[Rfam]
Shown here is a 137-nucleotide RNA from Tetraodon nigroviridis, a member of the family "Small nucleolar RNA SNORA22".
ACA22 is a member of the H/ACA class of snoRNA that guide the sites of modification of uridines to pseudouridines.
The family's consensus secondary structure was predicted with RNAfold.
Gene Ontology terms of the family: RNA processing and nucleolus.
Rfam 15.1 lists 883 matches to the family in 606 species.
Rfam's curators put it in the seed alignment.
RNA sequence: GUGCACAGCGAACACCCAAGGAUGCUAACAUGGCUCCCCCUGGUCUCCUGAAUCUGUGCUAAAGUAAAUCUGAUUUGUACCUCUGCAUUUGGAGAGCUGCUUUCUCUUUUAAAUGUAUUCAGCAGAUCAGAAUAAAU
Numbered sequence: 001g002u003g004c005a006c007a008g009c010g011a012a013c014a015c016c017c018a019a020g021g022a023u024g025c026u027a028a029c030a031u032g033g034c035u036c037c038c039c040c041u042g043g044u045c046u047c048c049u050g051a052a053u054c055u056g057u058g059c060u061a062a063a064g065u066a067a068a069u070c071u072g073a074u075u076u077g078u079a080c081c082u083c084u085g086c087a088u089u090u091g092g093a094g095a096g097c098u099g100c101u102u103u104c105u106c107u108u109u110u111a112a113a114u115g116u117a118u119u120c121a122g123c124a125g126a127u128c129a130g131a132a133u134a135a136a137u
Stems, first nucleotide, its partner, number of pairs: 003059006010053001013050002016043003020039001024034003061076003065072002083122003086115004091109006